The family of this 79-nucleotide sequence from Flavobacterium aquatile is "Flavo-1 RNA". A search with the family's covariance model found it, with a score of 54 bits. The organism belongs to Flavobacterium aquatile, within Bacteria.
RNA sequence: ACCUAGCCCUGAUAGUAAUGAAAAUAAAAGACCUCCAUUGUUUGGAGGUUUUUUAUUGUAAUGGAUAGCAGGAAAAUGG
Numbered sequence: 001a002c003c004u005a006g007c008c009c010u011g012a013u014a015g016u017a018a019u020g021a022a023a024a025u026a027a028a029a030g031a032c033c034u035c036c037a038u039u040g041u042u043u044g045g046a047g048g049u050u051u052u053u054u055a056u057u058g059u060a061a062u063g064g065a066u067a068g069c070a071g072g073a074a075a076a077u078g079g
Base pairs, nucleotide, nucleotide: 009071010070011069013067014066018062019061023057024056025055026054028052029051030050031049032048033047034046035045036044037043